[Rfam]
The record is a 145-nucleotide RNA from Streptomyces sp. VN1, which matches "c-di-AMP riboswitch aptamer (ydaO/yuaA leader)" in Rfam. Rfam's curators write: This family represents a conserved RNA structure found upstream of the ydaO and yuaA genes in Bacillus subtilis and related genes in other bacteria. The ydaO/yuaA element is thought to act as a genetic 'off' switch for the ydaO and yuaA genes in its native state. It is believed that the element may be triggered during osmotic shock leading to activation of ydaO, a predicted amino acid transporter gene, and members of the yuaA-yubG operon which code for KtrA and KtrB K+ transporters. For this family Rfam cites "New RNA motifs suggest an expanded scope for riboswitches in bacterial genetic control" (Barrick et al., Proc Natl Acad Sci U S A, 2004).

RNA sequence: CACGACGGGUCGCCGGGACGGUCGUCUCCGCGGGAGACGCACCGGGCCGGGCAGCCCUUGGGGUGAAGCCGCACUCGUGCGGCCGGGCAACUUCGCCAGCCCGAAUCCGACAGGUCAUCCUUCACAGGCGGCUGACGAAGGGUUG
Dot-bracket structure: ..........((((.(((........)))(.((((....((.................))(((.....((((......))))..((((..........))))...))).........)))..).).))))...............